A member of the RNA family "Small nucleolar RNA SNORA11" from Suricata suricatta, 129 nucleotides long.
For this family Rfam cites "A novel experimental approach for systematic identification of box H/ACA snoRNAs from eukaryotes" (Gu et al., Nucleic Acids Res, 2005).
Rfam 15.1 lists 2,014 matches to the family in 202 species.
Rfam classes the family as an H/ACA-box small nucleolar RNA.
From the family's description: U107 (SNORA11) is a member of the H/ACA class of snoRNAs that guide the sites of modification of uridines to pseudouridines.
A search with the family's covariance model found it, with a score of 120 bits.
[Rfam]
RNA sequence: GGGCUGUGCUCAGAGCAGGGGGCUGAAGAAAUGGCUCUUCUGUUUACAACGCACCCAACAGGAACCUGGGUUCCUUGUGACAAGUGGCACAAAACUUGUGGUUUUCCUAUGGACAGAUGCCCUACAUGU
Numbered sequence: 001g002g003g004c005u006g007u008g009c010u011c012a013g014a015g016c017a018g019g020g021g022g023c024u025g026a027a028g029a030a031a032u033g034g035c036u037c038u039u040c041u042g043u044u045u046a047c048a049a050c051g052c053a054c055c056c057a058a059c060a061g062g063a064a065c066c067u068g069g070g071u072u073c074c075u076u077g078u079g080a081c082a083a084g085u086g087g088c089a090c091a092a093a094a095c096u097u098g099u100g101g102u103u104u105u106c107c108u109a110u111g112g113a114c115a116g117a118u119g120c121c122c123u124a125c126a127u128g129u
Base pairs, nucleotide, nucleotide: 002056003055005053006052007051008050013045014044015043016042017041018040019039020038021037022035023034024033069122070121072119076115077114078113081111082110084104086102088100089099090098091097092096